[Rfam]
The family of this 64-nucleotide RNA from Cnephaeus nilssonii is "mir-9242 microRNA precursor family".

RNA sequence: GGCCACCCUCUGUGGGGUGAUCGAUUGGGGGGCUCCAUGAUUGAUAACCCCAAAGAGGGAGGCC
Dot-bracket structure: ((((.((((((.((((((.((((((((.((....)).)))))))).)))))).)))))).))))
Numbered sequence: 001g002g003c004c005a006c007c008c009u010c011u012g013u014g015g016g017g018u019g020a021u022c023g024a025u026u027g028g029g030g031g032g033c034u035c036c037a038u039g040a041u042u043g044a045u046a047a048c049c050c051c052a053a054a055g056a057g058g059g060a061g062g063c064c
Stems, first nucleotide, its partner, number of pairs: 001064004006059006013052006020045008029036002
Taxonomically the source falls in Cnephaeus (Eukaryota, Teleostomi, Mammalia, Eutheria).